Shown here is a 357-nucleotide RNA from Henriciella algicola, a member of the family "Alphaproteobacteria transfer-messenger RNA".
It is annotated as a non-coding RNA gene.
Rfam links the family to the GO term RNA catabolic process.
About the family: Bacterial tmRNA, also known as 10Sa RNA or SsrA, is named for its dual tRNA and mRNA-like properties. Its role is to liberate the mRNA from a stalled ribosome. To accomplish this part of the tmRNA is used as a reading frame that ends in a translation stop signal.
The match comes from Rfam's covariance-model search (261 bits).
[Rfam]
RNA sequence: CCCCUUUCAUCGGUGCGAUGUGCGGCCUAUAUUCAACUCGUUCCUUCGGGGACUAUGGCGAUAAACGCGCGUGCAAUAAGCGGUUCGGACCCGGGGGCGGUACCCGGCGCCUCCACCAAAUUCCCUUCCUUCAGCGGGACGGCUUUGGGGGCGAAACAGGAUCGACGGACGUGUAAAGACGAUGCCUUCGCCCGGAUGAGCUCCGUUAGAAGCUCACUCAACAAUAGUUGCAAAUGACAACUUUGCUGAAGGCGAACUGCUCGCAGCCUAGUCUGCGCUCGGUUUACCGAACUUAACUCCUAGGGCUUCAGCGCCUUAGGCGGGGCCCGGAGGCGCCUGGCAACAGAAGCCUCCACC
Numbered sequence: 001c002c003c004c005u006u007u008c009a010u011c012g013g014u015g016c017g018a019u020g021u022g023c024g025g026c027c028u029a030u031a032u033u034c035a036a037c038u039c040g041u042u043c044c045u046u047c048g049g050g051g052a053c054u055a056u057g058g059c060g061a062u063a064a065a066c067g068c069g070c071g072u073g074c075a076a077u078a079a080g081c082g083g084u085u086c087g088g089a090c091c092c093g094g095g096g097g098c099g100g101u102a103c104c105c106g107g108c109g110c111c112u113c114c115a116c117c118a119a120a121u122u123c124c125c126u127u128c129c130u131u132c133a134g135c136g137g138g139a140c141g142g143c144u145u146u147g148g149g150g151g152c153g154a155a156a157c158a159g160g161a162u163c164g165a166c167g168g169a170c171g172u173g174u175a176a177a178g179a180c181g182a183u184g185c186c187u188u189c190g191c192c193c194g195g196a197u198g199a200g201c202u203c204c205g206u207u208a209g210a211a212g213c214u215c216a217c218u219c220a221a222c223a224a225u226a227g228u229u230g231c232a233a234a235u236g237a238c239a240a241c242u243u244u245g246c247u248g249a250a251g252g253c254g255a256a257c258u259g260c261u262c263g264c265a266g267c268c269u270a271g272u273c274u275g276c277g278c279u280c281g282g283u284u285u286a287c288c289g290a291a292c293u294u295a296a297c298u299c300c301u302a303g304g305g306c307u308u309c310a311g312c313g314c315c316u317u318a319g320g321c322g323g324g325g326c327c328c329g330g331a332g333g334c335g336c337c338u339g340g341c342a343a344c345a346g347a348a349g350c351c352u353c354c355a356c357c
Stems, first nucleotide, its partner, number of pairs: 040053005057192005067185003070181003081171002085168003091107005108153007193205004323338004329354006